The record is a 196-nucleotide sequence from Cellvibrio sp. PSBB006, which matches "Molybdenum/Tungsten riboswitch aptamer (Moco RNA motif)" in Rfam. The family has 160 seed sequences and 1,248 matches in Rfam 15.1. The family's consensus secondary structure is taken from published work.

RNA sequence: CUUACAACUAACGCCGAGCCUUUCGUACCUAACGGGAUACCUUUAGCGGAGUUCUGAUAAUAGAACUUGAUGGUUCCCCAGACUCUGGUGAAAAGGCCGCGGACCCUGUGAUGUCCGCCGGGUUUACCGGGAAACGGGUAGACCUCCUGCAUUUAGCUCUACCUGAGCUACGGAAAGGUGCCCGCUUAUGUUGAUU
Dot-bracket structure: .(.........((((..((((((..((((.........................................................)))).))))))..(((((........)))))..(((((((((.(....).)))))))))((........................))...)))).........)......